[Rfam]
Rfam assigns this 40-nucleotide RNA from Heyndrickxia shackletonii to the family "Ribosomal protein L19 leader".
For this family Rfam cites "Diverse mechanisms for regulating ribosomal protein synthesis in Escherichia coli" (Zengel and Lindahl, Prog Nucleic Acid Res Mol Biol, 1994).
Gene Ontology term of the family: regulation of gene expression.
RNA sequence: ACGAUGUUCCGCUACAAUGAGUGAUAUGUAAGAGCAUCUG
Numbered sequence: 001a002c003g004a005u006g007u008u009c010c011g012c013u014a015c016a017a018u019g020a021g022u023g024a025u026a027u028g029u030a031a032g033a034g035c036a037u038c039u040g
Stems, first nucleotide, its partner, number of pairs: 003038007013030004
Dot-bracket structure: ..(((((((...((((..........)))).)))))))..